A member of the RNA family "MIR2912 microRNA precursor family" from Populus tomentosa, 159 nucleotides long. Rfam 15.1 lists 15,051 matches to the family in 15 species. The organism belongs to Populus, within Eukaryota. A search with the family's covariance model found it, with a score of 112 bits.

[Rfam]
RNA sequence: UUUAGAACUCGAGAUAUGGGCUGUUUUACACUGAACAGUGUCUGUGCUGUAGGACAGAUUCAAACUUCUCUAUUGUUGCUACAAUUUGAACUUGAAAAUGACCCUUUUGAAUCUUGCACUUCUCAUGAAAGUUUUAGGCCCAUGUCGUAGUUUUCCAUC
Numbered sequence: 001u002u003u004a005g006a007a008c009u010c011g012a013g014a015u016a017u018g019g020g021c022u023g024u025u026u027u028a029c030a031c032u033g034a035a036c037a038g039u040g041u042c043u044g045u046g047c048u049g050u051a052g053g054a055c056a057g058a059u060u061c062a063a064a065c066u067u068c069u070c071u072a073u074u075g076u077u078g079c080u081a082c083a084a085u086u087u088g089a090a091c092u093u094g095a096a097a098a099u100g101a102c103c104c105u106u107u108u109g110a111a112u113c114u115u116g117c118a119c120u121u122c123u124c125a126u127g128a129a130a131g132u133u134u135u136a137g138g139c140c141c142a143u144g145u146c147g148u149a150g151u152u153u154u155c156c157a158u159c
Base pairs, nucleotide, nucleotide: 003157005155006154007153008150009149011148013146014145015144016143017142018141019140020139021137022136023135028133030132031131032130038126039125040124044122046120048118049117051115052114053113054112057108058107066100071095075091076090077089